[Rfam]
Annotation: SAM (S-adenosyl methionine) riboswitch aptamer: a 113-nucleotide RNA from Arthrobacter sp. NIO-1057. It scores 72 bits against the family's covariance model.

RNA sequence: CUUCACGAGACACGGCGUUAAGCUCCGACUAGCCGUGCACCAACCCCAGAUUCAUGGGUGGUUCGGAUGAAGAAGCGGUCCGUUCACUCACUGUGUUCGGGCAAGAACUCAGC
Numbered sequence: 001c002u003u004c005a006c007g008a009g010a011c012a013c014g015g016c017g018u019u020a021a022g023c024u025c026c027g028a029c030u031a032g033c034c035g036u037g038c039a040c041c042a043a044c045c046c047c048a049g050a051u052u053c054a055u056g057g058g059u060g061g062u063u064c065g066g067a068u069g070a071a072g073a074a075g076c077g078g079u080c081c082g083u084u085c086a087c088u089c090a091c092u093g094u095g096u097u098c099g100g101g102c103a104a105g106a107a108c109u110c111a112g113c
Stems, first nucleotide, its partner, number of pairs: 001075004009038001011037006021030002039062003044058003078102005085095003